[Rfam]
RNA: DUF3800-VI RNA
RNA sequence: CGGUUGAGAGGGCCCGUUGUGCGGUCCGUUGGGGUUGAAACCUCACUCAGCUG
Numbered sequence: 001c002g003g004u005u006g007a008g009a010g011g012g013c014c015c016g017u018u019g020u021g022c023g024g025u026c027c028g029u030u031g032g033g034g035u036u037g038a039a040a041c042c043u044c045a046c047u048c049a050g051c052u053g
Stems, first nucleotide, its partner, number of pairs: 001053008010027005030045005